RNA sequence: CGCUUAGUCGGUGGCUCCGGUGCCCCCGGGGCCUGAUGCAAGAGGGA
Numbered sequence: 001c002g003c004u005u006a007g008u009c010g011g012u013g014g015c016u017c018c019g020g021u022g023c024c025c026c027c028g029g030g031g032c033c034u035g036a037u038g039c040a041a042g043a044g045g046g047a
Base pairs, nucleotide, nucleotide: 013033014032015031016030017029018028019027020026
Shown here is a 47-nucleotide RNA from Streptomyces luteoverticillatus, a member of the family "raiA-hairpin RNA". By type it is a small RNA. The family's consensus secondary structure is taken from published work.